Flavo-1 RNA: a 67-nucleotide RNA sequence from Flavobacterium sp. GT3R68.
Taxonomically the source falls in Flavobacterium (Bacteria, Bacteroidota, Flavobacteriia, Flavobacteriales).

[Rfam]
RNA sequence: CUUUAGCCCUGAUGGAAACGGCAUCCCACGCUUUUUUGCGUGGAUACAGUGGACAGCAGGAAUAAGC
Numbered sequence: 001c002u003u004u005a006g007c008c009c010u011g012a013u014g015g016a017a018a019c020g021g022c023a024u025c026c027c028a029c030g031c032u033u034u035u036u037u038g039c040g041u042g043g044a045u046a047c048a049g050u051g052g053a054c055a056g057c058a059g060g061a062a063u064a065a066g067c
Base pairs, nucleotide, nucleotide: 009059010058011057013055014054018050019049023045024044025043026042028041029040030039031038